A member of the RNA family "Glycine riboswitch aptamer" from Spiribacter salilacus, 103 nucleotides long.
RNA sequence: GACCUGACAGCGGGAGAGUUCUACGCAUUAGCACACGGCUAAGGUAGGCGCCGAAGGAGCAACGACCCCGGAAUCUCUCAGGCACACGGACCGCUGUCAUGUU
Numbered sequence: 001g002a003c004c005u006g007a008c009a010g011c012g013g014g015a016g017a018g019u020u021c022u023a024c025g026c027a028u029u030a031g032c033a034c035a036c037g038g039c040u041a042a043g044g045u046a047g048g049c050g051c052c053g054a055a056g057g058a059g060c061a062a063c064g065a066c067c068c069c070g071g072a073a074u075c076u077c078u079c080a081g082g083c084a085c086a087c088g089g090a091c092c093g094c095u096g097u098c099a100u101g102u103u
Stems, first nucleotide, its partner, number of pairs: 006098008020048004050083003053079002057077003063070002
Pairs were carried over by alignment from the consensus structure.
The source organism's lineage runs through Bacteria, Pseudomonadati, Gammaproteobacteria, Ectothiorhodospiraceae and Spiribacter.
A search with the family's covariance model found it, with a score of 68 bits.